[Rfam]
RNA sequence: UCAGGCCCUUCCGUCCUACUCCAUUUCAAUAGGGCGGCGGGAGCCGUAAAUGAAGGAGGAACAUCCGCCAGGCCGGCGGUGCGGCAGUGUGGAGACCUGUCGUAAUGUCCGCGGAGUUUCGCUCUCCACGGACAAGGGGGUAUUUGCGGAGGCAUUGCCCCUACGGCCCAAAACAGUAUGGCA
Dot-bracket structure: ......(((.((((((((...........)))))))).))).......................[[[[..(((((]]]]((((((((.((....))))))))))..(((((.(((.........))).)))))..(((((((..(((....))).))))))).)))))...............